RNA sequence: GGAUGAACUUCUGGAAAGCAGAUGCGCGUUCAGCGUGUCUCACCGAAGGGGUAACCCCGAUCCGCCAAGCGGUCAGGGGGAAAUCUCUCAGGUCCAAUGACAGAGGGGCGCGG
Numbered sequence: 001g002g003a004u005g006a007a008c009u010u011c012u013g014g015a016a017a018g019c020a021g022a023u024g025c026g027c028g029u030u031c032a033g034c035g036u037g038u039c040u041c042a043c044c045g046a047a048g049g050g051g052u053a054a055c056c057c058c059g060a061u062c063c064g065c066c067a068a069g070c071g072g073u074c075a076g077g078g079g080g081a082a083a084u085c086u087c088u089c090a091g092g093u094c095c096a097a098u099g100a101c102a103g104a105g106g107g108g109c110g111c112g113g
Stems, first nucleotide, its partner, number of pairs: 008106006020040006042093003045089002049087003055080004
The record is a 113-nucleotide RNA from Rhizomicrobium palustre, which matches "Glycine riboswitch aptamer" in Rfam. Its family is annotated with glycine biosynthetic process in the Gene Ontology. This family represents the bacterial glycine riboswitch. Glycine riboswitches usually consist of two metabolite-binding aptamers domains with similar structures in tandem. The aptamers cooperatively bind glycine to regulate the expression of downstream genes. In Bacillus subtilis, this riboswitch is found upstream of the gcvT operon which controls glycine degradation. The organism belongs to Rhizomicrobium, within Bacteria.